[Rfam]
RNA sequence: AGAGUGUUACGAUGAUGGAAAUUUAUUUCCAAGUCUAGCUCGAAACUUCUCCUGAAACUUCGCUUUCAGGAG
Numbered sequence: 001a002g003a004g005u006g007u008u009a010c011g012a013u014g015a016u017g018g019a020a021a022u023u024u025a026u027u028u029c030c031a032a033g034u035c036u037a038g039c040u041c042g043a044a045a046c047u048u049c050u051c052c053u054g055a056a057a058c059u060u061c062g063c064u065u066u067c068a069g070g071a072g
Stems, first nucleotide, its partner, number of pairs: 002041004011035003017030005049072009
Dot-bracket structure: .((((.....(((...(((((....)))))..)))..)))).......(((((((((......)))))))))
Description: The family of this 72-nucleotide sequence from Carnobacterium maltaromaticum is "L17 ribosomal protein downstream element". Lineage of the source: Bacteria > Bacillati > Lactobacillales > Carnobacteriaceae > Carnobacterium maltaromaticum. It scores 57 bits against the family's covariance model. The family's consensus secondary structure is taken from published work.